This 90-nucleotide sequence from Eleutherodactylus coqui belongs to the Rfam family "Small nucleolar RNA SNORD70". About the family: snoRNA HBII-234 belongs to the C/D family of snoRNAs. It is the human orthologue of the mouse MBII-234 and is predicted to guide 2'O-ribose methylation of the small 18S rRNA on position A512. Rfam links the family to the GO terms RNA processing and nucleolus.
RNA sequence: UUUAUUGUUGCCAAUGAUGGAUCUAUAGUUGGAUUGAACUACCUUGAUGAGAUUCAACAGUUUCGUCACUACCACUGAGGCAACAAGUGG
Numbered sequence: 001u002u003u004a005u006u007g008u009u010g011c012c013a014a015u016g017a018u019g020g021a022u023c024u025a026u027a028g029u030u031g032g033a034u035u036g037a038a039c040u041a042c043c044u045u046g047a048u049g050a051g052a053u054u055c056a057a058c059a060g061u062u063u064c065g066u067c068a069c070u071a072c073c074a075c076u077g078a079g080g081c082a083a084c085a086a087g088u089g090g
Base pairs, nucleotide, nucleotide: 001090002089005086006085007084008083009082010081011080012079